[Rfam]
RNA sequence: UGAGUGACCCCGCGGUGCUGUCGGACCCCCGACCUGGCAGCACCCGGGGUUUCUUC
Numbered sequence: 001u002g003a004g005u006g007a008c009c010c011c012g013c014g015g016u017g018c019u020g021u022c023g024g025a026c027c028c029c030c031g032a033c034c035u036g037g038c039a040g041c042a043c044c045c046g047g048g049g050u051u052u053c054u055u056c
Base pairs, nucleotide, nucleotide: 002055003054004053007050008049009048010047011046012045014044015043016042017041018040019039020038021037022036
RNA: F6 TB sRNA